[Rfam]
RNA: Vault RNA
RNA sequence: GGGCUGGCUUUAGCCCAGCGGUUCCUUCGAGUCUGGUUUCCCAACUGCCUGGACCAAUUGAUCCGGUGGUUUGAGACCUGUGGGAACUCUCCAGUCCUUUU
Numbered sequence: 001g002g003g004c005u006g007g008c009u010u011u012a013g014c015c016c017a018g019c020g021g022u023u024c025c026u027u028c029g030a031g032u033c034u035g036g037u038u039u040c041c042c043a044a045c046u047g048c049c050u051g052g053a054c055c056a057a058u059u060g061a062u063c064c065g066g067u068g069g070u071u072u073g074a075g076a077c078c079u080g081u082g083g084g085a086a087c088u089c090u091c092c093a094g095u096c097c098u099u100u101u
Stems, first nucleotide, its partner, number of pairs: 002096006014084003018081004026075005